[Rfam]
RNA sequence: UAAUAAAUAAGAAAAGAGAGCCCUGCGCUAACAGGACUCUCGGUGCAAGCCGUUUAAGACGGUGGCUUCGUUAUAGUUUAAAAAAUA
Numbered sequence: 001u002a003a004u005a006a007a008u009a010a011g012a013a014a015a016g017a018g019a020g021c022c023c024u025g026c027g028c029u030a031a032c033a034g035g036a037c038u039c040u041c042g043g044u045g046c047a048a049g050c051c052g053u054u055u056a057a058g059a060c061g062g063u064g065g066c067u068u069c070g071u072u073a074u075a076g077u078u079u080a081a082a083a084a085a086u087a
Stems, first nucleotide, its partner, number of pairs: 022035004049063006
RNA: RNA anti-toxin A
Organism: Jeotgalibaca porci